RNA sequence: CUAAAAAACAAAAAAUAAUGCCGUAUAAUUCUGGGGAUAUGGCCCGGAAGUCUCUACAGGAACACCUUAAAGGUUCCUACUACGGCGUGCACUGAUUUCCGG
Numbered sequence: 001c002u003a004a005a006a007a008a009c010a011a012a013a014a015a016u017a018a019u020g021c022c023g024u025a026u027a028a029u030u031c032u033g034g035g036g037a038u039a040u041g042g043c044c045c046g047g048a049a050g051u052c053u054c055u056a057c058a059g060g061a062a063c064a065c066c067u068u069a070a071a072g073g074u075u076c077c078u079a080c081u082a083c084g085g086c087g088u089g090c091a092c093u094g095a096u097u098u099c100c101g102g
Stems, first nucleotide, its partner, number of pairs: 018088008029049007058078006

Rfam assigns this 102-nucleotide RNA from Exiguobacterium artemiae to the family "Purine riboswitch aptamer". From the family's description: Riboswitches are metabolite binding domains within certain messenger RNAs that serve as precision sensors for their corresponding targets. Allosteric rearrangement of mRNA structure is mediated by ligand binding, and this results in modulation of gene expression.